Shown here is a 328-nucleotide RNA sequence from Psophia crepitans, a member of the family "7SK RNA".

[Rfam]
RNA sequence: GGAUGUGAGGGCUAUCUGGCUGUAACAUCCAUCACCCCACUGAUCACCAGGGUUGAUUGGGCUGAUCUGGCUGGCUGGGCAGGUGUCCCCUUCCUCCCUCACUGCUCCAUGUGCAUCCCUCCCGGAGCUGCACGCUCAACCCAAGAGGAUGGCCUUCCCUGAUAGACACGUACGGUUCAUCGGUCAAGGGUAUAUGGGAGCUGCGCUCCUCUGCUAGAACCUCCAAACAAGCUCAAGGUCCAUUUGUAGGAGAACAUAGGGUAGUCCAGCUUCCAAGACUGCAGACACAUACAAGUGAGGCGCUGCAUGGGGCAGUCUGCCAUUCCUU
Numbered sequence: 001g002g003a004u005g006u007g008a009g010g011g012c013u014a015u016c017u018g019g020c021u022g023u024a025a026c027a028u029c030c031a032u033c034a035c036c037c038c039a040c041u042g043a044u045c046a047c048c049a050g051g052g053u054u055g056a057u058u059g060g061g062c063u064g065a066u067c068u069g070g071c072u073g074g075c076u077g078g079g080c081a082g083g084u085g086u087c088c089c090c091u092u093c094c095u096c097c098c099u100c101a102c103u104g105c106u107c108c109a110u111g112u113g114c115a116u117c118c119c120u121c122c123c124g125g126a127g128c129u130g131c132a133c134g135c136u137c138a139a140c141c142c143a144a145g146a147g148g149a150u151g152g153c154c155u156u157c158c159c160u161g162a163u164a165g166a167c168a169c170g171u172a173c174g175g176u177u178c179a180u181c182g183g184u185c186a187a188g189g190g191u192a193u194a195u196g197g198g199a200g201c202u203g204c205g206c207u208c209c210u211c212u213g214c215u216a217g218a219a220c221c222u223c224c225a226a227a228c229a230a231g232c233u234c235a236a237g238g239u240c241c242a243u244u245u246g247u248a249g250g251a252g253a254a255c256a257u258a259g260g261g262u263a264g265u266c267c268a269g270c271u272u273c274c275a276a277g278a279c280u281g282c283a284g285a286c287a288c289a290u291a292c293a294a295g296u297g298a299g300g301c302g303c304u305g306c307a308u309g310g311g312g313c314a315g316u317c318u319g320c321c322a323u324u325c326c327u328u
Base pairs, nucleotide, nucleotide: 001108002107003106005102006101007100008099009098010097011096014092018090019089025086026085027084028083029082032079033078035074036073037070038069039068042067043066044065045064047061048060117170120166121165124137125136127135128134141161147158148157149156200270201269202268206264207263209261210260211259212258213257221252222251223250224249227247228246229245230244231243293328294327295326297323299321300320301319302316303315304314305313306312
Rfam 15.1 lists 49,373 matches to the family in 668 species. Clan: 7SK clan. A reference for the family is Blencowe (2002), "Transcription: surprising role for an elusive small nuclear RNA", Curr Biol. Taxonomically the source falls in Psophia (Eukaryota, Deuterostomia, Theropoda, Gruiformes). The family's consensus secondary structure is taken from published work. Rfam's curators write: 7SK was discovered as an abundant small nuclear RNA in the mid-70s but a possible function has only recently been suggested.